[Rfam]
RNA sequence: GACUUAUGUUUGGCAGCGAGCUUAACUCUAUGAGGGAGGCGUAGCGAAAGCGAGUCUGACAAGGGCGCCGUAGUUGCCGAGCAUAGACCCGAAACCAGGUGAUCUACCCAUGGGCAGGAUGAUGGUGCGUUAAGCCGCACCGGAGGUCCGAACCCACUAACGUUGCAAAGUUAGGGGAUGAUUUGUGGGUAGGGGUGAAAGGCCAAUCAAACCGGGAGAUAGCUGGUU
Numbered sequence: 001g002a003c004u005u006a007u008g009u010u011u012g013g014c015a016g017c018g019a020g021c022u023u024a025a026c027u028c029u030a031u032g033a034g035g036g037a038g039g040c041g042u043a044g045c046g047a048a049a050g051c052g053a054g055u056c057u058g059a060c061a062a063g064g065g066c067g068c069c070g071u072a073g074u075u076g077c078c079g080a081g082c083a084u085a086g087a088c089c090c091g092a093a094a095c096c097a098g099g100u101g102a103u104c105u106a107c108c109c110a111u112g113g114g115c116a117g118g119a120u121g122a123u124g125g126u127g128c129g130u131u132a133a134g135c136c137g138c139a140c141c142g143g144a145g146g147u148c149c150g151a152a153c154c155c156a157c158u159a160a161c162g163u164u165g166c167a168a169a170g171u172u173a174g175g176g177g178a179u180g181a182u183u184u185g186u187g188g189g190u191a192g193g194g195g196u197g198a199a200a201g202g203c204c205a206a207u208c209a210a211a212c213c214g215g216g217a218g219a220u221a222g223c224u225g226g227u228u
Stems, first nucleotide, its partner, number of pairs: 005085013020040004026034003044051002054066004088226002091223001095216002098213003104192011115180001117149004124141006153177003157174005194204003

Source information: The record is a 228-nucleotide part of an RNA from Candidatus Tremblayella princeps, which matches "Bacterial large subunit ribosomal RNA" in Rfam. For this family Rfam cites "Crystal structure of the ribosome at 5.5 A resolution" (Yusupov et al., Science, 2001). The source organism's lineage runs through Bacteria, Pseudomonadati, Pseudomonadota, Betaproteobacteria and Candidatus Tremblayella. The base pairs follow the family's consensus structure, which is taken from published work.